[Rfam]
RNA sequence: CGCCCGGGACUUGAUCGGGACCCGCCCGGGACUUGGCGGGUCAAGUCCCGGGCGGGUCCCGGUCAAGUCUCGGGCG
Numbered sequence: 001c002g003c004c005c006g007g008g009a010c011u012u013g014a015u016c017g018g019g020a021c022c023c024g025c026c027c028g029g030g031a032c033u034u035g036g037c038g039g040g041u042c043a044a045g046u047c048c049c050g051g052g053c054g055g056g057u058c059c060c061g062g063u064c065a066a067g068u069c070u071c072g073g074g075c076g
Stems, first nucleotide, its partner, number of pairs: 001076009011066002016061015032045005